[Rfam]
Overview:
The family of this 68-nucleotide RNA sequence from Cyprinus carpio is "mir-375 microRNA precursor family". Rfam links the family to the GO terms RISC complex and miRNA-mediated post-transcriptional gene silencing.

RNA sequence: UCUCACGUUGAGCCACACGCACAAUACCUGCAGAUGAAAAGGUUUUGUUCGUUCGGCUCGCGUUACGC
Numbered sequence: 001u002c003u004c005a006c007g008u009u010g011a012g013c014c015a016c017a018c019g020c021a022c023a024a025u026a027c028c029u030g031c032a033g034a035u036g037a038a039a040a041g042g043u044u045u046u047g048u049u050c051g052u053u054c055g056g057c058u059c060g061c062g063u064u065a066c067g068c
Stems, first nucleotide, its partner, number of pairs: 001067001003065001005063003009060006018051002021048004026043002